[Rfam]
RNA: U2 spliceosomal RNA
Organism: Colletotrichum asianum
RNA sequence: CCAGCCUCUUUAGCCUCAUGCUAAGAUCAAGUGUAGUAUCUGUUCUUUUCAGUUUAGCCGCUGAUACGUCUCUAAGGGGGACAUCUUGCCAACCGGUUAACCAAUUUUUCUCUUCCAGAGCAGAUCGGUCUCUGUACUUGUGCAGGACAGUCUGUUCAUUGUGUUCCCGGUAUUACACUGCAUCCGGGCGACGCGAAAUACUU
Numbered sequence: 001c002c003a004g005c006c007u008c009u010u011u012a013g014c015c016u017c018a019u020g021c022u023a024a025g026a027u028c029a030a031g032u033g034u035a036g037u038a039u040c041u042g043u044u045c046u047u048u049u050c051a052g053u054u055u056a057g058c059c060g061c062u063g064a065u066a067c068g069u070c071u072c073u074a075a076g077g078g079g080g081a082c083a084u085c086u087u088g089c090c091a092a093c094c095g096g097u098u099a100a101c102c103a104a105u106u107u108u109u110c111u112c113u114u115c116c117a118g119a120g121c122a123g124a125u126c127g128g129u130c131u132c133u134g135u136a137c138u139u140g141u142g143c144a145g146g147a148c149a150g151u152c153u154g155u156u157c158a159u160u161g162u163g164u165u166c167c168c169g170g171u172a173u174u175a176c177a178c179u180g181c182a183u184c185c186g187g188g189c190g191a192c193g194c195g196a197a198a199u200a201c202u203u
Stems, first nucleotide, its partner, number of pairs: 007026003012022003047066001049064004068082006119156007133144004159196006166188005